Shown here is a 74-nucleotide RNA from Haemonchus contortus, a member of the family "mir-9/mir-79 microRNA precursor family". For this family Rfam cites "Identification of novel genes coding for small expressed RNAs" (Lagos-Quintana et al., Science, 2001). Rfam's curators put it in the seed alignment. NCBI's taxonomy places the organism under Eukaryota, Bilateria, Chromadorea, Rhabditida, Haemonchus. Rfam links the family to the GO terms miRNA-mediated post-transcriptional gene silencing and RISC complex.
RNA sequence: CUAUUGAUCUCUUUGGUUAUCUAGCUGUAUGACUUUAUGGACUCAUAAGGCUGGACGACUAAAGGAAUCAAUUC
Numbered sequence: 001c002u003a004u005u006g007a008u009c010u011c012u013u014u015g016g017u018u019a020u021c022u023a024g025c026u027g028u029a030u031g032a033c034u035u036u037a038u039g040g041a042c043u044c045a046u047a048a049g050g051c052u053g054g055a056c057g058a059c060u061a062a063a064g065g066a067a068u069c070a071a072u073u074c
Stems, first nucleotide, its partner, number of pairs: 003072003007068002010065009020055007028047005